[Rfam]
Nucleotides: 119
Base pairs, nucleotide, nucleotide: 009023026115027114029112030079031078032077033076034075035074036073037072038071039070043057044056045055046054047053060067084104086103087102088101089100090099091098092097
Number, partner (000 for none) and nucleotide at each position: 001000g002000a003000a004000c005000a006000a007000a008000g009023c010000a011000a012000c013000c014000a015000u016000u017000c018000u019000u020000g021000u022000a023009g024000u025000a026115g027114g028000a029112c030079u031078g032077c033076g034075c035074g036073u037072g038071g039070g040000c041000a042000a043057g044056g045055c046054g047053g048000u049000g050000u051000a052000a053047c054046c055045g056044c057043c058000g059000g060067g061000c062000g063000a064000a065000a066000u067060c068000c069000u070039c071038c072037c073036a074035u075034g076033c077032g078031c079030a080000g081000a082000a083000g084104a085000c086103a087102g088101g089100c090099u091098c092097c093000c094000u095000c096000g097092g098091g099090g100089g101088c102087c103086u104084u105000u106000u107000u108000u109000a110000u111000u112029g113000c114027c115026u116000g117000a118000a119000a
Annotation:
Shown here is a 119-nucleotide sequence from Oryzicola mucosus, a member of the family "Rhizobiales sRNA Atu_C8". A search with the family's covariance model found it, with a score of 107 bits. Taxonomically the source falls in Oryzicola (Bacteria, Pseudomonadati, Alphaproteobacteria, Hyphomicrobiales). The literature on the family includes a 2012 paper in RNA Biol by Wilms et al., "Deep sequencing uncovers numerous small RNAs on all four replicons of the plant pathogen Agrobacterium tumefaciens". Rfam classes the family as a small RNA.